[Rfam]
The record is a 303-nucleotide RNA sequence from Arachis hypogaea, which matches "Plant signal recognition particle RNA" in Rfam. Clan: SRP clan. On this family, see Wild et al., Curr Opin Struct Biol 2002: "Towards the structure of the mammalian signal recognition particle".
RNA sequence: GCCGAGUUGGGUUGCGCUAACUUGUAACCCGAGUGGGGGCACUAAGGUGACGGAACACGGUUCUGGCUACGCUUGGUUGGGUUGGUGGCUCCACCAUGCUGGCUUGCCCACUCCAAGUUGAGAGUUGAGUCAUGGCAUCUGGGCGAAAGCUCAAGUGUCCUGGCUCUUAGACUCAGGGGCACUGCGCCAGGUUGGCUUCACAGAGCAACGAAAACUUUGGGCUCCCAACAGUGGAGGGAUCACAAGCCGCUGCACCAUUAGUCCGCAUUGCCAAGCAUGCCUGGCUCUUGAACCGUCGCCUUU
Numbered sequence: 001g002c003c004g005a006g007u008u009g010g011g012u013u014g015c016g017c018u019a020a021c022u023u024g025u026a027a028c029c030c031g032a033g034u035g036g037g038g039g040c041a042c043u044a045a046g047g048u049g050a051c052g053g054a055a056c057a058c059g060g061u062u063c064u065g066g067c068u069a070c071g072c073u074u075g076g077u078u079g080g081g082u083u084g085g086u087g088g089c090u091c092c093a094c095c096a097u098g099c100u101g102g103c104u105u106g107c108c109c110a111c112u113c114c115a116a117g118u119u120g121a122g123a124g125u126u127g128a129g130u131c132a133u134g135g136c137a138u139c140u141g142g143g144c145g146a147a148a149g150c151u152c153a154a155g156u157g158u159c160c161u162g163g164c165u166c167u168u169a170g171a172c173u174c175a176g177g178g179g180c181a182c183u184g185c186g187c188c189a190g191g192u193u194g195g196c197u198u199c200a201c202a203g204a205g206c207a208a209c210g211a212a213a214a215c216u217u218u219g220g221g222c223u224c225c226c227a228a229c230a231g232u233g234g235a236g237g238g239a240u241c242a243c244a245a246g247c248c249g250c251u252g253c254a255c256c257a258u259u260a261g262u263c264c265g266c267a268u269u270g271c272c273a274a275g276c277a278u279g280c281c282u283g284g285c286u287c288u289u290g291a292a293c294c295g296u297c298g299c300c301u302u303u
Stems, first nucleotide, its partner, number of pairs: 001040003004023007028037003044302010056290002059288002062284002065281003069278001071276007079264009090254001100249007108238002111236005117229004122224004127166006134159005140153005173220006183212001185210002192203003